[Rfam]
RNA sequence: CCUCAUCUGCAUCCUCGCGACUAAUGACAACCCUAAUCCCUUAUGGGACAAAGCCUCUCAUUAGCCGCGCGAACCUCUGCAACUGAAGAUCACACCCAGCAACAAUACAAUAGUUUGGCUUGAAAUGCUGCCGCUCGCCUAAAAAAAGGGGCCAUAAAGGCCCCUUUUU
Numbered sequence: 001c002c003u004c005a006u007c008u009g010c011a012u013c014c015u016c017g018c019g020a021c022u023a024a025u026g027a028c029a030a031c032c033c034u035a036a037u038c039c040c041u042u043a044u045g046g047g048a049c050a051a052a053g054c055c056u057c058u059c060a061u062u063a064g065c066c067g068c069g070c071g072a073a074c075c076u077c078u079g080c081a082a083c084u085g086a087a088g089a090u091c092a093c094a095c096c097c098a099g100c101a102a103c104a105a106u107a108c109a110a111u112a113g114u115u116u117g118g119c120u121u122g123a124a125a126u127g128c129u130g131c132c133g134c135u136c137g138c139c140u141a142a143a144a145a146a147a148g149g150g151g152c153c154a155u156a157a158a159g160g161c162c163c164c165u166u167u168u169u
Base pairs, nucleotide, nucleotide: 001088003086004085005084009080010079011078016071017070018069019068021064022063023062024061025060026059027058095122148164149163150162151161152160153159

SraG RNA: a 169-nucleotide RNA sequence from Erwinia billingiae. It is annotated as a small RNA. On this family, see Argaman et al., Curr Biol 2001: "Novel small RNA-encoding genes in the intergenic regions of Escherichia coli". This RNA was discovered in E. coli during a large scale screen. Evidence was found for specific cleavage of this RNA. Taxonomically the source falls in Erwinia (Bacteria, Pseudomonadati, Pseudomonadota, Enterobacterales). The family's consensus secondary structure was predicted with PFOLD. It scores 136 bits against the family's covariance model.